[Rfam]
RNA sequence: UUUUUUAAAUUUUUUUUUUUUUUUCCCCUUUUUUUUCCCCAAUCCCCCCCCGGGGGCCCAAGCGGGGAAGGGGGGGAAAGGGGGGGAAAAAAAAAAAGGGGGGGCCCCCGGGGGGGGCCCUUUUUUU
Numbered sequence: 001u002u003u004u005u006u007a008a009a010u011u012u013u014u015u016u017u018u019u020u021u022u023u024u025c026c027c028c029u030u031u032u033u034u035u036u037c038c039c040c041a042a043u044c045c046c047c048c049c050c051c052g053g054g055g056g057c058c059c060a061a062g063c064g065g066g067g068a069a070g071g072g073g074g075g076g077a078a079a080g081g082g083g084g085g086g087a088a089a090a091a092a093a094a095a096a097a098g099g100g101g102g103g104g105c106c107c108c109c110g111g112g113g114g115g116g117g118c119c120c121u122u123u124u125u126u127u
Base pairs, nucleotide, nucleotide: 014097015096016095017094019092020091021090022089023088024087025086026085027084028083029082030081031080032079034077035076036075037074043056044055045054046053057071059070101121102120103119104118105117106116107115108114109113